[Rfam]
The family of this 58-nucleotide RNA sequence from Kingdonia uniflora is "Plastid-psbA-3 3UTR RNA". The organism belongs to Kingdonia, within Eukaryota.
RNA sequence: AAAGGAACAAUACCCAAGUUCUUGUUCUAUCAAGAGGAUGAGUAUUGCUCCUUCAUUU
Numbered sequence: 001a002a003a004g005g006a007a008c009a010a011u012a013c014c015c016a017a018g019u020u021c022u023u024g025u026u027c028u029a030u031c032a033a034g035a036g037g038a039u040g041a042g043u044a045u046u047g048c049u050c051c052u053u054c055a056u057u058u
Base pairs, nucleotide, nucleotide: 002053003052004051005050006049008047009046010045011044012043013042014040019036020035021034022033023032024031
The base pairs follow the family's consensus structure, which was predicted with LocARNA. Rfam's curators write: Plastid psbA-3 is a non-coding RNA (ncRNA) present in plastids. It was identified in inverted repeat sequences in the 3 prime untranslate region (3UTR) of photosystem II quinone-binding protein (psbA).